RNA sequence: AGCCUUCCUCUAGAUGGAAAUGAGCACUGUUGUUCAUGGUGUCCAGAAAUUGUUAAUGUAGCUACACUGAGACACAGGUGGGCUUCCCUCACAGGCAGUGGUGACACUGAGACCUGUAAUGUUU
Numbered sequence: 001a002g003c004c005u006u007c008c009u010c011u012a013g014a015u016g017g018a019a020a021u022g023a024g025c026a027c028u029g030u031u032g033u034u035c036a037u038g039g040u041g042u043c044c045a046g047a048a049a050u051u052g053u054u055a056a057u058g059u060a061g062c063u064a065c066a067c068u069g070a071g072a073c074a075c076a077g078g079u080g081g082g083c084u085u086c087c088c089u090c091a092c093a094g095g096c097a098g099u100g101g102u103g104a105c106a107c108u109g110a111g112a113c114c115u116g117u118a119a120u121g122u123u124u
Stems, first nucleotide, its partner, number of pairs: 002062002006058001021045002024042004074117005087103001089101004
RNA: Small nucleolar RNA SNORA1